[Rfam]
RNA sequence: GCACAUCGACAGGGGAGCGCCCGCACGGGGCGCUGAGAGUGCGCCCGAUGCGCAGACCCUCGAACCUGCUCCGGCUCGCACCGGCGAAGGAAGUCGAGAACCUCUCAAC
Numbered sequence: 001g002c003a004c005a006u007c008g009a010c011a012g013g014g015g016a017g018c019g020c021c022c023g024c025a026c027g028g029g030g031c032g033c034u035g036a037g038a039g040u041g042c043g044c045c046c047g048a049u050g051c052g053c054a055g056a057c058c059c060u061c062g063a064a065c066c067u068g069c070u071c072c073g074g075c076u077c078g079c080a081c082c083g084g085c086g087a088a089g090g091a092a093g094u095c096g097a098g099a100a101c102c103u104c105u106c107a108a109c
Base pairs, nucleotide, nucleotide: 006097007096008095009094010093011060012059013058014057017033018032019031020030021029040054041053042052043051044050065090066089067088071084072083073082074081
A member of the RNA family "TPP riboswitch aptamer (THI element)" from Micrococcus sp. HMSC067E09, 109 nucleotides long. Taxonomically the source falls in Micrococcus (Bacteria, Actinomycetes, Micrococcales, Micrococcaceae). The match comes from Rfam's covariance-model search (61 bits).